[Rfam]
RNA sequence: AUUACCAGACUCACAAAACCCAGCCACAGGUUCGGUUGGUGCGUCUGUCUGGGUCGGGGCGCGUGAGCCGCCCACCCUCAUCCGGCUCGCUUGCCAAGCAAGGAGUGCUAGCGCACGGCUGAGGGAACCAACAAAAGCCUCGGGUCACCGCGCCCGAGGUUGUUUACCUGCUCAAAAUCGGGAUUCC
Numbered sequence: 001a002u003u004a005c006c007a008g009a010c011u012c013a014c015a016a017a018a019c020c021c022a023g024c025c026a027c028a029g030g031u032u033c034g035g036u037u038g039g040u041g042c043g044u045c046u047g048u049c050u051g052g053g054u055c056g057g058g059g060c061g062c063g064u065g066a067g068c069c070g071c072c073c074a075c076c077c078u079c080a081u082c083c084g085g086c087u088c089g090c091u092u093g094c095c096a097a098g099c100a101a102g103g104a105g106u107g108c109u110a111g112c113g114c115a116c117g118g119c120u121g122a123g124g125g126a127a128c129c130a131a132c133a134a135a136a137g138c139c140u141c142g143g144g145u146c147a148c149c150g151c152g153c154c155c156g157a158g159g160u161u162g163u164u165u166a167c168c169u170g171c172u173c174a175a176a177a178u179c180g181g182g183a184u185u186c187c
Base pairs, nucleotide, nucleotide: 005052006051007050008049009048010047013044014043020039021038022037023036024035025034053076057073058072059071060070061069062067084187085186087183088182090180097172098171099170103169105167106166107165109121110120111119112118136161137160138159139158140157141156142155143154144153145152
Shown here is a 187-nucleotide RNA sequence from Haloquadratum walsbyi, a member of the family "Sense overlapping transcript RNA 2652 (sot)". The match comes from Rfam's covariance-model search (154 bits). The family's RNA type in Rfam is small RNA. About the family: It is associated with IS1341-type transposase (tnpB) genes, at the 3'-end in H. salinarum NRC-1. The tetraloop structural motif may be functional.